[Rfam]
RNA sequence: CCCUUAUCUUUUAAAAGUUUCAAGUUGGUCCCUUAUCUUUAUUUUAGGUUUCAAGUUGGUCCCUUCCGUCAAUUUUUUUAACUAUUUCCGUUAAAUUUGGACACGUGGCAAACUAAUUUGAAAACAUGACAUAGUUGGACAGAUGACACGUGUCCAAAUUUAACGGUAACAGUACAAAAUUUGACGGAAUAGACCAACUUGAAACCUAAAAAAAGAUAAGGGACCAACUUGAAACUUUUAAAAGAUAAAGGA
Numbered sequence: 001c002c003c004u005u006a007u008c009u010u011u012u013a014a015a016a017g018u019u020u021c022a023a024g025u026u027g028g029u030c031c032c033u034u035a036u037c038u039u040u041a042u043u044u045u046a047g048g049u050u051u052c053a054a055g056u057u058g059g060u061c062c063c064u065u066c067c068g069u070c071a072a073u074u075u076u077u078u079u080a081a082c083u084a085u086u087u088c089c090g091u092u093a094a095a096u097u098u099g100g101a102c103a104c105g106u107g108g109c110a111a112a113c114u115a116a117u118u119u120g121a122a123a124a125c126a127u128g129a130c131a132u133a134g135u136u137g138g139a140c141a142g143a144u145g146a147c148a149c150g151u152g153u154c155c156a157a158a159u160u161u162a163a164c165g166g167u168a169a170c171a172g173u174a175c176a177a178a179a180u181u182u183g184a185c186g187g188a189a190u191a192g193a194c195c196a197a198c199u200u201g202a203a204a205c206c207u208a209a210a211a212a213a214a215g216a217u218a219a220g221g222g223a224c225c226a227a228c229u230u231g232a233a234a235c236u237u238u239u240a241a242a243a244g245a246u247a248a249a250g251g252a
Stems, first nucleotide, its partner, number of pairs: 002250001004248005023229003027225003031221010042211002045208003
The record is a 252-nucleotide sequence from Trifolium subterraneum, which matches "MIR2655 microRNA precursor family" in Rfam.